Rfam assigns this 191-nucleotide RNA from Catenibacterium sp. CAG:290 to the family "T-box leader".
By type it is a cis-regulatory leader.
For this family Rfam cites "Solution structure of the Bacillus subtilis T-box antiterminator RNA: seven nucleotide bulge characterized by stacking and flexibility" (Gerdeman et al., J Mol Biol, 2003).
Uncharged tRNA acts as the effector for transcription antitermination of genes in the T-box leader family. T-boxes are found upstream of many aminoacyl-tRNA synthetase genes and some amino acid biosynthetic genes usually in Gram-positive bacteria. The anticodon of a specific tRNA base pairs to a specifier sequence within the T-box motif, and the NCCA acceptor tail of the tRNA base pairs to a conserved bulge in the T-box antiterminator hairpin.

RNA sequence: GUAAAAGCAAUGAACAGAAGAGACUAAAGUGAAAUGCAUAGAGAACUUAUGGCUGGUGUAAAUAAGUGUGAAGCUUUAGAAAGAUGGUCUGGGAGCUGUUAUCUCUAAUAGGGAUAACCGUAACUCGCGUUAAGAGAUUGAGUGACACGUAAGUGUAAAAAAGGUGGUACCGCGAUAAUUUCGUCCUUUAU
Dot-bracket structure: ......((......((((.....((((((.......(.......((((((...........))))))).....))))))........))))...))..(((((((.....))))))).(((.....)))...............((((....))))....((((.......((((.....))))))))...

The source organism's lineage runs through Bacteria, Bacillati, Erysipelotrichia, Erysipelotrichales and Catenibacterium.